[Rfam]
The record is a 164-nucleotide sequence from Vicugna pacos, which matches "U1 spliceosomal RNA" in Rfam. U1 is a small nuclear RNA (snRNA) component of the spliceosome (involved in pre-mRNA splicing). It scores 112 bits against the family's covariance model. It is annotated as a spliceosomal small nuclear RNA.
RNA sequence: AUGGUCACCCGGCAGGGGAGCCACCAUGAUUACGAAGGUGGUUUUCCCAGGGCGAGGCUUAUCCGUUGCAGUCCCGAUAUGCUGACCCCUGUGAUGUCCCCAAAUGUGGGAAACUCAGCUGCAUAAUUUGUGGUAAUGGGAGACUACAUUCAUGCUCUCCCCUG
Numbered sequence: 001a002u003g004g005u006c007a008c009c010c011g012g013c014a015g016g017g018g019a020g021c022c023a024c025c026a027u028g029a030u031u032a033c034g035a036a037g038g039u040g041g042u043u044u045u046c047c048c049a050g051g052g053c054g055a056g057g058c059u060u061a062u063c064c065g066u067u068g069c070a071g072u073c074c075c076g077a078u079a080u081g082c083u084g085a086c087c088c089c090u091g092u093g094a095u096g097u098c099c100c101c102a103a104a105u106g107u108g109g110g111a112a113a114c115u116c117a118g119c120u121g122c123a124u125a126a127u128u129u130g131u132g133g134u135a136a137u138g139g140g141a142g143a144c145u146a147c148a149u150u151c152a153u154g155c156u157c158u159c160c161c162c163u164g
Base pairs, nucleotide, nucleotide: 012122013121014120015119016048017047018046019045020044023042024041025040026039027038049090050089051088052087054086056083057082058081060079061078062077063076092117093116094115095113097111099109100108138163139162140161142159143158147154148153
Source information: Taxonomically the source falls in Vicugna (Eukaryota, Tetrapoda, Mammalia, Eutheria). The base pairs follow the family's consensus structure, which is taken from published work.